[Rfam]
RNA: Small nucleolar RNA SNORA61
Organism: Orycteropus afer
RNA sequence: ACCCUUCAGUUCCCUUUCCCAUUGGAUCUAAACACUGUUCUAGGUGGUAGUAAAAGAAGGAAAACUAACACUGAAACUGACUUCAGUGCUUUGUAGCACAUGGGCUAGCUUCAAACAAGA
Dot-bracket structure: ..(((((...........(((((.((.(........).))..)))))........)))))................(((.(((........((...))...))).)))............
Numbered sequence: 001a002c003c004c005u006u007c008a009g010u011u012c013c014c015u016u017u018c019c020c021a022u023u024g025g026a027u028c029u030a031a032a033c034a035c036u037g038u039u040c041u042a043g044g045u046g047g048u049a050g051u052a053a054a055a056g057a058a059g060g061a062a063a064a065c066u067a068a069c070a071c072u073g074a075a076a077c078u079g080a081c082u083u084c085a086g087u088g089c090u091u092u093g094u095a096g097c098a099c100a101u102g103g104g105c106u107a108g109c110u111u112c113a114a115a116c117a118a119g120a
Stems, first nucleotide, its partner, number of pairs: 003060005019047005025040002028037001077108003081104003092098002